The record is a 151-nucleotide RNA sequence from Shigella flexneri, which matches "Short Intergenic Abundant RNA" in Rfam. From the family's description: This family contains multiple ncRNA from E. coli that were identified in a large scale screen of E. coli, were they were called candidates 43,55 and 61. These RNAs have also been identified by other groups and called QUAD RNAs. A reference for the family is Wassarman et al. (2001), "Identification of novel small RNAs using comparative genomics and microarrays", Genes Dev. The organism belongs to Shigella flexneri 2a, within Bacteria. Rfam classes the family as an antitoxin RNA. The family's consensus secondary structure was predicted with PFOLD.
RNA sequence: UUGACAUCGUUGAUUCUUUGACCUAAUUUAGUGAGUAAGGGUAAGGGAGGAUGACUCCUCCCUUGAGACUGACUGUUAAUAAGCUCCGAAACUUAUCAGUAACAGUACAAUCAGUAUGAUGACAAGUCGCAUCAUAACCCUUCUCCUUUAA
Numbered sequence: 001u002u003g004a005c006a007u008c009g010u011u012g013a014u015u016c017u018u019u020g021a022c023c024u025a026a027u028u029u030a031g032u033g034a035g036u037a038a039g040g041g042u043a044a045g046g047g048a049g050g051a052u053g054a055c056u057c058c059u060c061c062c063u064u065g066a067g068a069c070u071g072a073c074u075g076u077u078a079a080u081a082a083g084c085u086c087c088g089a090a091a092c093u094u095a096u097c098a099g100u101a102a103c104a105g106u107a108c109a110a111u112c113a114g115u116a117u118g119a120u121g122a123c124a125a126g127u128c129g130c131a132u133c134a135u136a137a138c139c140c141u142u143c144u145c146c147u148u149u150a151a
Stems, first nucleotide, its partner, number of pairs: 030147002033145002037142006045062003069114004115136007